mir-320 microRNA precursor family: a 76-nucleotide sequence from Prolemur simus.
Rfam links the family to the GO terms cellular response to glucose stimulus, long-term synaptic potentiation and RISC complex.
RNA sequence: UGCUAUAAGGGCCUUCUCUUCUGGGUUCUUCCUGGAGUCGGGAAAAGUCGGGUUGAGAGGGCAGAAAAAAGAAAAG
Numbered sequence: 001u002g003c004u005a006u007a008a009g010g011g012c013c014u015u016c017u018c019u020u021c022u023g024g025g026u027u028c029u030u031c032c033u034g035g036a037g038u039c040g041g042g043a044a045a046a047g048u049c050g051g052g053u054u055g056a057g058a059g060g061g062c063a064g065a066a067a068a069a070a071g072a073a074a075a076g
Base pairs, nucleotide, nucleotide: 014059015058016057017056018055021052022051024049025048029044030043031042032041033040034039
About this RNA: A search with the family's covariance model found it, with a score of 70 bits. The family has 38 seed sequences and 659 matches in Rfam 15.1.